The family of this 138-nucleotide RNA from Prolemur simus is "U4 spliceosomal RNA". It is annotated as a spliceosomal small nuclear RNA. The family has 177 seed sequences and 32,178 matches in Rfam 15.1. On this family, see Charenton et al., Science 2019: "Mechanism of 5' splice site transfer for human spliceosome activation".
[Rfam]
RNA sequence: AGCUUUGAGCAGUGACAGUAUCGUAGCCAAUGAGGUUUAUCUGUGGCACGAUUAUUGCUAAUUGAACUCUCUAGUUAGGUUAGAAUUACUCCUUCUUUAUAGAUGAGAAAAAAUAAGUGUCAGAGAAAUUAAAUAAUC
Numbered sequence: 001a002g003c004u005u006u007g008a009g010c011a012g013u014g015a016c017a018g019u020a021u022c023g024u025a026g027c028c029a030a031u032g033a034g035g036u037u038u039a040u041c042u043g044u045g046g047c048a049c050g051a052u053u054a055u056u057g058c059u060a061a062u063u064g065a066a067c068u069c070u071c072u073a074g075u076u077a078g079g080u081u082a083g084a085a086u087u088a089c090u091c092c093u094u095c096u097u098u099a100u101a102g103a104u105g106a107g108a109a110a111a112a113a114u115a116a117g118u119g120u121c122a123g124a125g126a127a128a129u130u131a132a133a134u135a136a137u138c
Base pairs, nucleotide, nucleotide: 020052021051022050023049024048026047027046028045034042035041085114086113087112090108091107093105094103095102096101128137129136130135